RNA sequence: CUCGGUUUGUAAUGCAGAACCAGUAUGAAAGACAUUUUAGUAAAGCAGUUCUUUGUUUAGCGAUGUGUAUCACUUCGCUCAUGAAUUUCCUUCUUUAGUGCUCCCGUACGUCCUCUGAUAGAACAGACCCUUUUCGCCCGAGAGCGGCGACUCUACUUUAAAUAUAUUAGGAAAUAUCAUGUCUGAUAAAAUGACUGGCUUAGUAAAAUGGUUUGACGCUGGUAAAGGUUUCGGCUUCAUCACUCCAGACAACGGCAGCAAAGACAUCUUCGUUCACUUCUCUGCAAUCCAGAGCACCGCAUUCAAAACUCUGGACGAAGGCCAGCGUGUUGAGUUCACUGUUGAAAACGGCCAGAAAGGUCCUUCAGCAGCUAACGUUGUAGCUCUGUAAUAUUGCUUUUAAGUGACCACCAGAGUUUGCGAUUUUGGGUAACCAUAAAUUGCUAA
Numbered sequence: 001c002u003c004g005g006u007u008u009g010u011a012a013u014g015c016a017g018a019a020c021c022a023g024u025a026u027g028a029a030a031g032a033c034a035u036u037u038u039a040g041u042a043a044a045g046c047a048g049u050u051c052u053u054u055g056u057u058u059a060g061c062g063a064u065g066u067g068u069a070u071c072a073c074u075u076c077g078c079u080c081a082u083g084a085a086u087u088u089c090c091u092u093c094u095u096u097a098g099u100g101c102u103c104c105c106g107u108a109c110g111u112c113c114u115c116u117g118a119u120a121g122a123a124c125a126g127a128c129c130c131u132u133u134u135c136g137c138c139c140g141a142g143a144g145c146g147g148c149g150a151c152u153c154u155a156c157u158u159u160a161a162a163u164a165u166a167u168u169a170g171g172a173a174a175u176a177u178c179a180u181g182u183c184u185g186a187u188a189a190a191a192u193g194a195c196u197g198g199c200u201u202a203g204u205a206a207a208a209u210g211g212u213u214u215g216a217c218g219c220u221g222g223u224a225a226a227g228g229u230u231u232c233g234g235c236u237u238c239a240u241c242a243c244u245c246c247a248g249a250c251a252a253c254g255g256c257a258g259c260a261a262a263g264a265c266a267u268c269u270u271c272g273u274u275c276a277c278u279u280c281u282c283u284g285c286a287a288u289c290c291a292g293a294g295c296a297c298c299g300c301a302u303u304c305a306a307a308a309c310u311c312u313g314g315a316c317g318a319a320g321g322c323c324a325g326c327g328u329g330u331u332g333a334g335u336u337c338a339c340u341g342u343u344g345a346a347a348a349c350g351g352c353c354a355g356a357a358a359g360g361u362c363c364u365u366c367a368g369c370a371g372c373u374a375a376c377g378u379u380g381u382a383g384c385u386c387u388g389u390a391a392u393a394u395u396g397c398u399u400u401u402a403a404g405u406g407a408c409c410a411c412c413a414g415a416g417u418u419u420g421c422g423a424u425u426u427u428g429g430g431u432a433a434c435c436a437u438a439a440a441u442u443g444c445u446a447a
Stems, first nucleotide, its partner, number of pairs: 004020001006018004026247002030244002045237001047236004051228004060223002063220001066218003069214001072212003080181005089171003095166001098124002101121001136148003183198003187194001250344006263271002274332001276330002279327001282325003285321001288315006350363002366388003369383001371381002392415001394413001397404002420444007429435002
RNA: cspA thermoregulator